[Rfam]
The record is a 584-nucleotide part of an RNA from Vulcanisaeta moutnovskia, which matches "Archaeal large subunit ribosomal RNA" in Rfam. It is one of the family's seed sequences. NCBI's taxonomy places the organism under Archaea, Thermoproteati, Thermoproteota, Thermoproteales, Vulcanisaeta moutnovskia.
RNA sequence: CCCCCGACGGGGCGAGAAGACCCUGUGGAGCUUUACUGCAGCCCGUCGUUGGGGUGCGGGAGGGGGUGCAUAGUGUAGGUGGGAGCAAUGAAGCGCGGUCUCCGGGCCGCGCGGAUGCGCCAAUGAAACACCACCCACUCUCUCCCGCACCCCUAACCUCGGGUAGCACUCGGGGGACAGCGGCGGGUGGGCAGUUCGGCUGGGGCGGCACACCCCUGAAAGGAUAUCAGGGGUGCCCAAAGCUCGGCUCAGGCGGGUCAGAACUCCGCCGUAGAGGGUAAGGCCAAAUGCCGGGCUGACUGCGCCCUUGAACGCAAGGGGCGCAGGGGGGAAACCCGGGCCUAACGAACGCUCGUGCCCCCACCAGUGGGGGCCGGGCAUGACAGAAAAGUUACCCCAGGAGUAACCGGCUCGUCGCGGGUGAGAGUUCCCAUCGACCCCGCGGUUUGGUACCCAGACGUCGUCUCUUCCCAUCCUGGGGGUGCAGCAGCCCCCAAGGGUGGGGCUGCCCGCCCAUUAAAGGGGAACGUGAGAUGGGUUCAGACCGUCGUGAGACAGGUCGGACUCUACCUGUCGGGGGUGCU
Numbered sequence: 001c002c003c004c005c006g007a008c009g010g011g012g013c014g015a016g017a018a019g020a021c022c023c024u025g026u027g028g029a030g031c032u033u034u035a036c037u038g039c040a041g042c043c044c045g046u047c048g049u050u051g052g053g054g055u056g057c058g059g060g061a062g063g064g065g066g067u068g069c070a071u072a073g074u075g076u077a078g079g080u081g082g083g084a085g086c087a088a089u090g091a092a093g094c095g096c097g098g099u100c101u102c103c104g105g106g107c108c109g110c111g112c113g114g115a116u117g118c119g120c121c122a123a124u125g126a127a128a129c130a131c132c133a134c135c136c137a138c139u140c141u142c143u144c145c146c147g148c149a150c151c152c153c154u155a156a157c158c159u160c161g162g163g164u165a166g167c168a169c170u171c172g173g174g175g176g177a178c179a180g181c182g183g184c185g186g187g188u189g190g191g192c193a194g195u196u197c198g199g200c201u202g203g204g205g206c207g208g209c210a211c212a213c214c215c216c217u218g219a220a221a222g223g224a225u226a227u228c229a230g231g232g233g234u235g236c237c238c239a240a241a242g243c244u245c246g247g248c249u250c251a252g253g254c255g256g257g258u259c260a261g262a263a264c265u266c267c268g269c270c271g272u273a274g275a276g277g278g279u280a281a282g283g284c285c286a287a288a289u290g291c292c293g294g295g296c297u298g299a300c301u302g303c304g305c306c307c308u309u310g311a312a313c314g315c316a317a318g319g320g321g322c323g324c325a326g327g328g329g330g331g332a333a334a335c336c337c338g339g340g341c342c343u344a345a346c347g348a349a350c351g352c353u354c355g356u357g358c359c360c361c362c363a364c365c366a367g368u369g370g371g372g373g374c375c376g377g378g379c380a381u382g383a384c385a386g387a388a389a390a391g392u393u394a395c396c397c398c399a400g401g402a403g404u405a406a407c408c409g410g411c412u413c414g415u416c417g418c419g420g421g422u423g424a425g426a427g428u429u430c431c432c433a434u435c436g437a438c439c440c441c442g443c444g445g446u447u448u449g450g451u452a453c454c455c456a457g458a459c460g461u462c463g464u465c466u467c468u469u470c471c472c473a474u475c476c477u478g479g480g481g482g483u484g485c486a487g488c489a490g491c492c493c494c495c496a497a498g499g500g501u502g503g504g505g506c507u508g509c510c511c512g513c514c515c516a517u518u519a520a521a522g523g524g525g526a527a528c529g530u531g532a533g534a535u536g537g538g539u540u541c542a543g544a545c546c547g548u549c550g551u552g553a554g555a556c557a558g559g560u561c562g563g564a565c566u567c568u569a570c571c572u573g574u575c576g577g578g579g580g581u582g583c584u
Stems, first nucleotide, its partner, number of pairs: 001580008010572003014567002022401004027397002029393005035195004042187007051153018078135005085118003096109005157175007198211001199209003212234006237340002243295006249275002252270006276285002300326009328337001330335001351379005357374001359373004410451003414448001415445007425435002462537001463535004467529001468526005475500002479494005503515004543561004547556003